This 104-nucleotide RNA sequence from Canis lupus belongs to the Rfam family "mir-8834 microRNA precursor family". The base pairs follow the family's consensus structure, which was predicted with RNAalifold. The family has 2 seed sequences and 13,926 matches in Rfam 15.1. NCBI's taxonomy places the organism under Eukaryota, Gnathostomata, Euteleostomi, Tetrapoda, Canis lupus. Gene Ontology terms of the family: RISC complex and miRNA-mediated post-transcriptional gene silencing.
RNA sequence: AGGAGCAACAGCCCUAGUGGCGGGGCAGCUCUGGAGCCCUGGAGUCAGCCCCCGCAGUAGCUCUGGAGCUCUCCGUCUGCAGGGCCUGGAUGCUCCGGGCGGGG
Numbered sequence: 001a002g003g004a005g006c007a008a009c010a011g012c013c014c015u016a017g018u019g020g021c022g023g024g025g026c027a028g029c030u031c032u033g034g035a036g037c038c039c040u041g042g043a044g045u046c047a048g049c050c051c052c053c054g055c056a057g058u059a060g061c062u063c064u065g066g067a068g069c070u071c072u073c074c075g076u077c078u079g080c081a082g083g084g085c086c087u088g089g090a091u092g093c094u095c096c097g098g099g100c101g102g103g104g
Stems, first nucleotide, its partner, number of pairs: 002096006009088003012084003019077007027070009039057003